[Rfam]
RNA sequence: UUCUUGUUGGAUGAUGACUGUCACGUGUCAUGUUUUGAUUGGAUAUCAAUUCUAUGAAAGAUGAAAUGUAUUGUUGUUUUCAUUGACCAAUCAGAACAUGACAUGUGACAGUCGUCAUCC
Numbered sequence: 001u002u003c004u005u006g007u008u009g010g011a012u013g014a015u016g017a018c019u020g021u022c023a024c025g026u027g028u029c030a031u032g033u034u035u036u037g038a039u040u041g042g043a044u045a046u047c048a049a050u051u052c053u054a055u056g057a058a059a060g061a062u063g064a065a066a067u068g069u070a071u072u073g074u075u076g077u078u079u080u081c082a083u084u085g086a087c088c089a090a091u092c093a094g095a096a097c098a099u100g101a102c103a104u105g106u107g108a109c110a111g112u113c114g115u116c117a118u119c120c
Base pairs, nucleotide, nucleotide: 020109021108022107023106025104026103029100030099031098033096034095035094036093038091039090040089
RNA: MIR1520 microRNA precursor family
Organism: Glycine max